Description: Streptomyces sRNA 4677: a 238-nucleotide RNA from Streptomyces cyaneogriseus. Taxonomically the source falls in Streptomyces cyaneogriseus (Bacteria, Bacillati, Actinomycetota, Actinomycetes). The family has 12 seed sequences and 563 matches in Rfam 15.1. Located in the intergenic region between anti-sigma factor SCO4677 gene and a putative regulatory protein gene SCO4676. scr4677 expression requires the SCO4677 activity and scr4677 sRNA itself seem to affect the levels of the SCO4676-associated transcripts. A reference for the family is Hindra et al. (2014), "Complex intra-operonic dynamics mediated by a small RNA in Streptomyces coelicolor", PLoS One.
RNA sequence: CGGGCCGGGGCCGCGGGCGGUAAAAGACCAAAGAACCUGGGGAAAAAACCCGCCCAACCAACCAAACCUCGUGUGUGUCACCCGGGUGGGUGAAACCGGUCGGUGCGGCUGGCGCGUCGGUGGCCCGGACGUGCAGUCUCGCCCCAAGGCACCACCACAACCCCACACAUGCAUCGGCCCCCGCCGGGACUGCCAUCCCGAGCGAGGGCCUGACCAACGAGGAAGCGAGCCCUUCCCC
Numbered sequence: 001c002g003g004g005c006c007g008g009g010g011c012c013g014c015g016g017g018c019g020g021u022a023a024a025a026g027a028c029c030a031a032a033g034a035a036c037c038u039g040g041g042g043a044a045a046a047a048a049c050c051c052g053c054c055c056a057a058c059c060a061a062c063c064a065a066a067c068c069u070c071g072u073g074u075g076u077g078u079c080a081c082c083c084g085g086g087u088g089g090g091u092g093a094a095a096c097c098g099g100u101c102g103g104u105g106c107g108g109c110u111g112g113c114g115c116g117u118c119g120g121u122g123g124c125c126c127g128g129a130c131g132u133g134c135a136g137u138c139u140c141g142c143c144c145c146a147a148g149g150c151a152c153c154a155c156c157a158c159a160a161c162c163c164c165a166c167a168c169a170u171g172c173a174u175c176g177g178c179c180c181c182c183g184c185c186g187g188g189a190c191u192g193c194c195a196u197c198c199c200g201a202g203c204g205a206g207g208g209c210c211u212g213a214c215c216a217a218c219g220a221g222g223a224a225g226c227g228a229g230c231c232c233u234u235c236c237c238c
Stems, first nucleotide, its partner, number of pairs: 007218001010215001017072003078093006108150002110146003176210005182204003186199004221236005